Rfam assigns this 71-nucleotide sequence from Electrophorus electricus to the family "Small nucleolar RNA SNORD99". Its family is annotated with RNA processing and nucleolus in the Gene Ontology. It is annotated as a C/D-box small nucleolar RNA. A search with the family's covariance model found it, with a score of 64 bits.
[Rfam]
RNA sequence: ACUGAUCAAGGAUGACUUGUUUGAUUAGUGACUGCUGGGUGACACUUGCGGAUAUGGGACUGAGAUCAGAA
Dot-bracket structure: .((((............................................................))))..